[Rfam]
RNA sequence: CUUGAUCGACCCGAGCCAGAGCGGAGUCUCCCGGUCCUGGCCGUAGGCGGCCAGCAGCGCCUGCGCCUC
Numbered sequence: 001c002u003u004g005a006u007c008g009a010c011c012c013g014a015g016c017c018a019g020a021g022c023g024g025a026g027u028c029u030c031c032c033g034g035u036c037c038u039g040g041c042c043g044u045a046g047g048c049g050g051c052c053a054g055c056a057g058c059g060c061c062u063g064c065g066c067c068u069c
Stems, first nucleotide, its partner, number of pairs: 016024002028065001030063001032059002037054003041050003
Dot-bracket structure: ...............((.....))...(.(.((...(((.(((....))).)))...))...).)....
About this RNA: Rfam assigns this 69-nucleotide RNA from Streptosporangium subroseum to the family "ASpks TB sRNA". For this family Rfam cites "Identification of small RNAs in Mycobacterium tuberculosis" (Arnvig and Young, Mol Microbiol, 2009). It is annotated as an antisense RNA. Taxonomically the source falls in Streptosporangium (Bacteria, Bacillati, Actinomycetes, Streptosporangiales).